[Rfam]
RNA: Purine riboswitch aptamer
RNA sequence: AUUAUAUUUGAAUAAUAACCUUGUAUAAGUUCAGGAAUAUGGCCUGAGCGUUUCUACCAGCUACCAUAAAUAGCUUGUCUACAAGGAUAGUGAUGAUUGAA
Numbered sequence: 001a002u003u004a005u006a007u008u009u010g011a012a013u014a015a016u017a018a019c020c021u022u023g024u025a026u027a028a029g030u031u032c033a034g035g036a037a038u039a040u041g042g043c044c045u046g047a048g049c050g051u052u053u054c055u056a057c058c059a060g061c062u063a064c065c066a067u068a069a070a071u072a073g074c075u076u077g078u079c080u081a082c083a084a085g086g087a088u089a090g091u092g093a094u095g096a097u098u099g100a101a
Stems, first nucleotide, its partner, number of pairs: 019086007029049007058077002060074004